[Rfam]
RNA: azaaromatic riboswitch aptamer (yjdF RNA)
Organism: Dorea sp. D27
RNA sequence: AGUAGCAGAGAUAAAAACACAGUCUGGUUGGUAGUCCAGGCAUAUCCGGCAGGAUAUCAGUAACCUUCCUCCUUAGGUCGUCCAUUCUUUGUCUGUGAAAA
Numbered sequence: 001a002g003u004a005g006c007a008g009a010g011a012u013a014a015a016a017a018c019a020c021a022g023u024c025u026g027g028u029u030g031g032u033a034g035u036c037c038a039g040g041c042a043u044a045u046c047c048g049g050c051a052g053g054a055u056a057u058c059a060g061u062a063a064c065c066u067u068c069c070u071c072c073u074u075a076g077g078u079c080g081u082c083c084a085u086u087c088u089u090u091g092u093c094u095g096u097g098a099a100a101a
Stems, first nucleotide, its partner, number of pairs: 005092007022041006042057006068077003